[Rfam]
RNA sequence: CAAAAGGUACUUCUGUAACUCGCAGCCCGGUCAUAACGAAGACGGGGUGGCUGAAAUGCCAAUGG
Numbered sequence: 001c002a003a004a005a006g007g008u009a010c011u012u013c014u015g016u017a018a019c020u021c022g023c024a025g026c027c028c029g030g031u032c033a034u035a036a037c038g039a040a041g042a043c044g045g046g047g048u049g050g051c052u053g054a055a056a057u058g059c060c061a062a063u064g065g
Stems, first nucleotide, its partner, number of pairs: 012062001013025004026047003030043003048061003
The record is a 65-nucleotide RNA, which matches "pemK RNA" in Rfam.